[Rfam]
RNA sequence: AGGUUAAUGCUAAUCGUGAUAGGGGUUGUUUAUUACCAAACGCCUGACAUGUUAGCAUUAGCUU
Numbered sequence: 001a002g003g004u005u006a007a008u009g010c011u012a013a014u015c016g017u018g019a020u021a022g023g024g025g026u027u028g029u030u031u032a033u034u035a036c037c038a039a040a041c042g043c044c045u046g047a048c049a050u051g052u053u054a055g056c057a058u059u060a061g062c063u064u
Stems, first nucleotide, its partner, number of pairs: 004061011020046004025041003
The family of this 64-nucleotide sequence from Echeneis naucrates is "mir-155 microRNA precursor family". Rfam links the family to the GO terms RISC complex and miRNA-mediated post-transcriptional gene silencing. It scores 62 bits against the family's covariance model. The base pairs follow the family's consensus structure, which was predicted with RNAalifold.